Notes
Shown here is a 138-nucleotide RNA from Oryzias melastigma, a member of the family "Small nucleolar RNA SNORD10". It is annotated as a C/D-box small nucleolar RNA. The family's consensus secondary structure was predicted with WAR. On this family, see Huttenhofer et al., EMBO J 2001: "RNomics: an experimental approach that identifies 201 candidates for novel, small, non-messenger RNAs in mouse".
[Rfam]
RNA sequence: GUAUGAUGAUGAAACCCAUGCGUGUCAACUGACUCUGUCCGUCUCUGGUGUGGCGUUGCUCUGGUCGGCGUUUUGCUGGCUGAAGUUAUCUCCACACCGGGGACCCAGAGACAUGAUCACACUCAUGAUCCUGAAUAC
Numbered sequence: 001g002u003a004u005g006a007u008g009a010u011g012a013a014a015c016c017c018a019u020g021c022g023u024g025u026c027a028a029c030u031g032a033c034u035c036u037g038u039c040c041g042u043c044u045c046u047g048g049u050g051u052g053g054c055g056u057u058g059c060u061c062u063g064g065u066c067g068g069c070g071u072u073u074u075g076c077u078g079g080c081u082g083a084a085g086u087u088a089u090c091u092c093c094a095c096a097c098c099g100g101g102g103a104c105c106c107a108g109a110g111a112c113a114u115g116a117u118c119a120c121a122c123u124c125a126u127g128a129u130c131c132u133g134a135a136u137a138c
Stems, first nucleotide, its partner, number of pairs: 001138004043102009
It scores 97 bits against the family's covariance model.